The record is a 95-nucleotide sequence from Microcebus murinus, which matches "Y RNA" in Rfam. A reference for the family is Teunissen et al. (2000), "Conserved features of Y RNAs: a comparison of experimentally derived secondary structures", Nucleic Acids Res.

RNA sequence: GGCUGGUCCGAUGGUAGUGCGUUAUCAGAACUUAUUAACAUUAGUGUCACUGAAGUUGGUAUUCAACCCCCUACUGCUAAAUUUGACUGGCACAA
Numbered sequence: 001g002g003c004u005g006g007u008c009c010g011a012u013g014g015u016a017g018u019g020c021g022u023u024a025u026c027a028g029a030a031c032u033u034a035u036u037a038a039c040a041u042u043a044g045u046g047u048c049a050c051u052g053a054a055g056u057u058g059g060u061a062u063u064c065a066a067c068c069c070c071c072u073a074c075u076g077c078u079a080a081a082u083u084u085g086a087c088u089g090g091c092a093c094a095a
Stems, first nucleotide, its partner, number of pairs: 002091007010084002015079001016075004021070001033061003037057002
Y RNAs are components of the Ro ribonucleoprotein particle (Ro RNP), in association with Ro60 and La proteins. The Y RNAs and Ro60 and La proteins are well conserved, but the function of the Ro RNP is not known. NCBI's taxonomy places the organism under Eukaryota, Vertebrata, Sarcopterygii, Eutheria, Microcebus.